The record is a 212-nucleotide sequence from Burkholderia sp. Bp8986, which matches "permuted transfer-messenger RNA" in Rfam. NCBI's taxonomy places the organism under Bacteria, Pseudomonadota, Betaproteobacteria, Burkholderiales, Burkholderia. Rfam's curators write: Bacterial tmRNA, also known as 10Sa RNA or SsrA, is named for its dual tRNA and mRNA-like properties. Its role is to liberate the mRNA from a stalled ribosome. To accomplish this part of the tmRNA is used as a reading frame that ends in a translation stop signal. The broken mRNA is replaced in the ribosome by the tmRNA and translation of the tmRNA leads to addition of a proteolysis tag to the incomplete protein enabling recognition by a protease. Recently a number of permuted tmRNA genes have been found encoded in two parts. tmRNAs have been identified in eubacteria and some chloroplasts but are absent from archaeal and eukaryote nuclear genomes. The family's consensus secondary structure is taken from published work. It is annotated as a non-coding RNA gene.
RNA sequence: UGCUGUAAUUCCUUUGACGUAAAGGCGUUCUGGACGCGGGUUCGAUUCCCGCCACCUCCACCAGAUGGCGUUUUCGCUAGACGUUAUCUGAUGGGGGUGACCUGGUUUCGACAGGGCGAGAUAGCGAAGAAGGCAGCAGGAGAGGUGACCGACCUAAUCGGCACAAAUCUGUAAAUGCAAACAAUAGCACUUACGCCCUGACGGGUACCUAA
Dot-bracket structure: (((((........((..........(((.(((...(((((.......)))))(((((((.................................)))))))............))).)))........)).....)))))((............))..........................................................
Numbered sequence: 001u002g003c004u005g006u007a008a009u010u011c012c013u014u015u016g017a018c019g020u021a022a023a024g025g026c027g028u029u030c031u032g033g034a035c036g037c038g039g040g041u042u043c044g045a046u047u048c049c050c051g052c053c054a055c056c057u058c059c060a061c062c063a064g065a066u067g068g069c070g071u072u073u074u075c076g077c078u079a080g081a082c083g084u085u086a087u088c089u090g091a092u093g094g095g096g097g098u099g100a101c102c103u104g105g106u107u108u109c110g111a112c113a114g115g116g117c118g119a120g121a122u123a124g125c126g127a128a129g130a131a132g133g134c135a136g137c138a139g140g141a142g143a144g145g146u147g148a149c150c151g152a153c154c155u156a157a158u159c160g161g162c163a164c165a166a167a168u169c170u171g172u173a174a175a176u177g178c179a180a181a182c183a184a185u186a187g188c189a190c191u192u193a194c195g196c197c198c199u200g201a202c203g204g205g206u207a208c209c210u211a212a
Stems, first nucleotide, its partner, number of pairs: 001138005014128002026118003030114003036052005053099007139154002